RNA sequence: GCGGACGGCUGGAUGGCCGCACCCUUCGGGGUGAGGAAAGUCCGGACUCCAUGAAGCGACGGUGCCGGGUAACGCCCGGGCGGGGCGACCCGACGGAAAGCGCCACAGAAAACAGACCGCCUUCGCCUCGUGCGAGGGUCAGGGUGAAACGGUGGGGUAAGAGCCCACCGCGGGCCUGGCAACAGGACCGGCACGGCAAGCCCCACCGGGAGCAAUGCCGAAUAGGGAUCCCGCGGGGCACGGACCCCAAGGCGGCUUCAGCCCAGGGAUCCGGGUUGGCAGCAAGACCCCGUCCGCAAGGGCGGGGCUAGAUGAAUGGUCAUCCACGGGGGCAACCCCGGGACAGAAUCCGGCUUACAGGCCGUCCGCGCAC
Numbered sequence: 001g002c003g004g005a006c007g008g009c010u011g012g013a014u015g016g017c018c019g020c021a022c023c024c025u026u027c028g029g030g031g032u033g034a035g036g037a038a039a040g041u042c043c044g045g046a047c048u049c050c051a052u053g054a055a056g057c058g059a060c061g062g063u064g065c066c067g068g069g070u071a072a073c074g075c076c077c078g079g080g081c082g083g084g085g086c087g088a089c090c091c092g093a094c095g096g097a098a099a100g101c102g103c104c105a106c107a108g109a110a111a112a113c114a115g116a117c118c119g120c121c122u123u124c125g126c127c128u129c130g131u132g133c134g135a136g137g138g139u140c141a142g143g144g145u146g147a148a149a150c151g152g153u154g155g156g157g158u159a160a161g162a163g164c165c166c167a168c169c170g171c172g173g174g175c176c177u178g179g180c181a182a183c184a185g186g187a188c189c190g191g192c193a194c195g196g197c198a199a200g201c202c203c204c205a206c207c208g209g210g211a212g213c214a215a216u217g218c219c220g221a222a223u224a225g226g227g228a229u230c231c232c233g234c235g236g237g238g239c240a241c242g243g244a245c246c247c248c249a250a251g252g253c254g255g256c257u258u259c260a261g262c263c264c265a266g267g268g269a270u271c272c273g274g275g276u277u278g279g280c281a282g283c284a285a286g287a288c289c290c291c292g293u294c295c296g297c298a299a300g301g302g303c304g305g306g307g308c309u310a311g312a313u314g315a316a317u318g319g320u321c322a323u324c325c326a327c328g329g330g331g332g333c334a335a336c337c338c339c340g341g342g343a344c345a346g347a348a349u350c351c352g353g354c355u356u357a358c359a360g361g362c363c364g365u366c367c368g369c370g371c372a373c
Stems, first nucleotide, its partner, number of pairs: 001369010011358001012324007020033005038356003042353005047212004056258001058256001060208005065079005080094001081092004095203002100201002102197003117143002119139008151169006170192001171190003175186004216281004226272006251263003288307008
RNA: Bacterial RNase P class A